[Rfam]
RNA sequence: CAAAAGCGACGCUAGGGUUCCGGCCUGCCGCCACGGCAGGUGCUGGUCCGAGAGCGGCGGACCUCCCGAGCAAGGGGGGUUACACGGCGGGACAAAAGCCCGGGAGGC
Numbered sequence: 001c002a003a004a005a006g007c008g009a010c011g012c013u014a015g016g017g018u019u020c021c022g023g024c025c026u027g028c029c030g031c032c033a034c035g036g037c038a039g040g041u042g043c044u045g046g047u048c049c050g051a052g053a054g055c056g057g058c059g060g061a062c063c064u065c066c067c068g069a070g071c072a073a074g075g076g077g078g079g080u081u082a083c084a085c086g087g088c089g090g091g092a093c094a095a096a097a098g099c100c101c102g103g104g105a106g107g108c
Stems, first nucleotide, its partner, number of pairs: 007059002010056003015049002020046002022043001023041006060081008083103001085106001089101003
Dot-bracket structure: ......((.(((..((...(((((((((.......)))))).).)).))....))).))((((((((......)))))))).(.[...(((.......))).)..]..
This 108-nucleotide RNA from Pseudoxanthomonas suwonensis belongs to the Rfam family "Guanidine-I riboswitch aptamer". Rfam links the family to the GO term regulation of gene expression. For this family Rfam cites "New RNA motifs suggest an expanded scope for riboswitches in bacterial genetic control" (Barrick et al., Proc Natl Acad Sci U S A, 2004).